[Rfam]
RNA: Selenocysteine transfer RNA
RNA sequence: GGCAGGGAAUGCGCGAAAAAGGGGUGCGUCCGGACUUCAAAUCCGGUGUGCGGUCGAGAGGUCGCAGGUAGGUUCGACUCCUAUACGCUUCC
Numbered sequence: 001g002g003c004a005g006g007g008a009a010u011g012c013g014c015g016a017a018a019a020a021g022g023g024g025u026g027c028g029u030c031c032g033g034a035c036u037u038c039a040a041a042u043c044c045g046g047u048g049u050g051c052g053g054u055c056g057a058g059a060g061g062u063c064g065c066a067g068g069u070a071g072g073u074u075c076g077a078c079u080c081c082u083a084u085a086c087g088c089u090u091c092c
Stems, first nucleotide, its partner, number of pairs: 001092002004089002007086001009084001012028004030046005049066005069083004